Makes More Granules Regulator RNA (mmgR): a 77-nucleotide RNA sequence from Sphingobium herbicidovorans. A search with the family's covariance model found it, with a score of 49 bits. On this family, see Sobrero and Valverde, Arch Microbiol 2011: "Evidences of autoregulation of hfq expression in Sinorhizobium meliloti strain 2011". Rfam classes the family as a small RNA.
RNA sequence: CGUCCCUGCCUUUCAGGCAUCCUCUCCUAAAAACUCAGCUGGCUGGUCCUUCGGGACCGGCCUUUUUUUUGUCGUAC
Numbered sequence: 001c002g003u004c005c006c007u008g009c010c011u012u013u014c015a016g017g018c019a020u021c022c023u024c025u026c027c028u029a030a031a032a033a034c035u036c037a038g039c040u041g042g043c044u045g046g047u048c049c050u051u052c053g054g055g056a057c058c059g060g061c062c063u064u065u066u067u068u069u070u071g072u073c074g075u076a077c
Stems, first nucleotide, its partner, number of pairs: 008018004041062009
Dot-bracket structure: .......((((...))))......................(((((((((....)))))))))...............